[Rfam]
RNA sequence: GAAGGCUGCCUGACCCAGCCUGAUGAACAUAACCUGCCCGAUGACGCCUCGGCGACGAGGAUGAGAGGGUGUUCCCCAUGGGAACCUCCGCCCUAAAGGGCGGAGAGGAGGUCAGCUAAAUUC
Numbered sequence: 001g002a003a004g005g006c007u008g009c010c011u012g013a014c015c016c017a018g019c020c021u022g023a024u025g026a027a028c029a030u031a032a033c034c035u036g037c038c039c040g041a042u043g044a045c046g047c048c049u050c051g052g053c054g055a056c057g058a059g060g061a062u063g064a065g066a067g068g069g070u071g072u073u074c075c076c077c078a079u080g081g082g083a084a085c086c087u088c089c090g091c092c093c094u095a096a097a098g099g100g101c102g103g104a105g106a107g108g109a110g111g112u113c114a115g116c117u118a119a120a121u122u123c
Stems, first nucleotide, its partner, number of pairs: 003021006036070004047060005071085005086105008
RNA: HgcC family RNA